[Rfam]
This 82-nucleotide sequence from Nyssa sinensis belongs to the Rfam family "Small nucleolar RNA Z122".
Lineage of the source: Eukaryota > Magnoliopsida > Gunneridae > Pentapetalae > Nyssa.
RNA sequence: UUUGGGAAAUGAUGCGAAGAUACAUACAGAGGCGCCAGCACUGCUGAUUGUUUUCUAUUUUGCACGUCAGUCUGAUCCCAAA
Numbered sequence: 001u002u003u004g005g006g007a008a009a010u011g012a013u014g015c016g017a018a019g020a021u022a023c024a025u026a027c028a029g030a031g032g033c034g035c036c037a038g039c040a041c042u043g044c045u046g047a048u049u050g051u052u053u054u055c056u057a058u059u060u061u062g063c064a065c066g067u068c069a070g071u072c073u074g075a076u077c078c079c080a081a082a
Stems, first nucleotide, its partner, number of pairs: 001082007
Rfam classes the family as a C/D-box small nucleolar RNA.